[Rfam]
RNA sequence: GGACACUCGCAGGUUUUUGCUUCGGUGAUAUUCGAAGAGCCGUUAUCACCGGGUGAAAAUUUGCAAGUGUCC
Numbered sequence: 001g002g003a004c005a006c007u008c009g010c011a012g013g014u015u016u017u018u019g020c021u022u023c024g025g026u027g028a029u030a031u032u033c034g035a036a037g038a039g040c041c042g043u044u045a046u047c048a049c050c051g052g053g054u055g056a057a058a059a060u061u062u063g064c065a066a067g068u069g070u071c072c
Stems, first nucleotide, its partner, number of pairs: 001072007009064010021053010033042002